[Rfam]
Nucleotides: 061
Base pairs, nucleotide, nucleotide: 001061002060003059005057006056007055008054009053010052011051012050013049014048018044019043020042021041022040023039024038025037026036
Number, partner (000 for none) and nucleotide at each position: 001061a002060c003059a004000a005057c006056u007055g008054u009053a010052a011051u012050u013049a014048g015000a016000c017000a018044g019043u020042u021041u022040u023039c024038u025037g026036u027000g028000u029000g030000g031000a032000c033000a034000g035000g036026a037025c038024a039023g040022a041021a042020a043019a044018c045000u046000g047000a048014c049013u050012a051011a052010u053009u054008a055007c056006a057005g058000c059003u060002g061001u
Shown here is a 61-nucleotide sequence from Pan troglodytes, a member of the family "mir-1537 microRNA precursor family".
The match comes from Rfam's covariance-model search (63 bits).
The family's consensus secondary structure was predicted with RNAalifold.
Lineage of the source: Eukaryota > Eumetazoa > Haplorrhini > Hominidae > Pan.